[Rfam]
RNA sequence: GCAAACCUUCGUUAGGUGAGGCUUCUGCAUAGACAGACGCCACUGCCCGGAAACGUCGAAAGACGCCAAUGGGUCAACAGGUAUUACCGGCUUAAGGUUUUACCUAAUGUGGCUGAGAAAAUUCUCUAGCUAUGCACGUGCCAAAGCUCAACGAGUGGGGGUUAAU
Numbered sequence: 001g002c003a004a005a006c007c008u009u010c011g012u013u014a015g016g017u018g019a020g021g022c023u024u025c026u027g028c029a030u031a032g033a034c035a036g037a038c039g040c041c042a043c044u045g046c047c048c049g050g051a052a053a054c055g056u057c058g059a060a061a062g063a064c065g066c067c068a069a070u071g072g073g074u075c076a077a078c079a080g081g082u083a084u085u086a087c088c089g090g091c092u093u094a095a096g097g098u099u100u101u102a103c104c105u106a107a108u109g110u111g112g113c114u115g116a117g118a119a120a121a122u123u124c125u126c127u128a129g130c131u132a133u134g135c136a137c138g139u140g141c142c143a144a145a146g147c148u149c150a151a152c153g154a155g156u157g158g159g160g161g162u163u164a165a166u
Stems, first nucleotide, its partner, number of pairs: 005162006011152002013095001015148003020142003025138001026136007039113005045074005054065004080104004086098003115126003

This 166-nucleotide RNA sequence from Neomoorella thermoacetica belongs to the Rfam family "M-box riboswitch aptamer (ykoK leader)". The source organism's lineage runs through Bacteria, Bacillati, Bacillota, Clostridia and Neomoorella thermoacetica. M-box riboswitch, also know as ykoK leader is described as a metaloregulatory RNA that sense divalent metals and function as a genetic control element of genes related to divalent metal transport in bacteria. It was first reported upstream of the B.subtilis ykoK gene and genes with related functions in other bacteria.